[Rfam]
RNA sequence: AACUUAUUAAGAAAGACUGAGGGAACUGAACCGUUGACGUCUUAACAACCUGCCGGAAGGUAAGGUGUUACAUUCAGCCGAAAGGGAAGAUAAGUG
Dot-bracket structure: .(((((((....(((((...((...[[[[.))......)))))((((.((((((....)))).))))))...(]]]]((....))..)))))))).
The family of this 96-nucleotide RNA sequence from Elizabethkingia meningoseptica is "SAM riboswitch aptamer (S box leader)".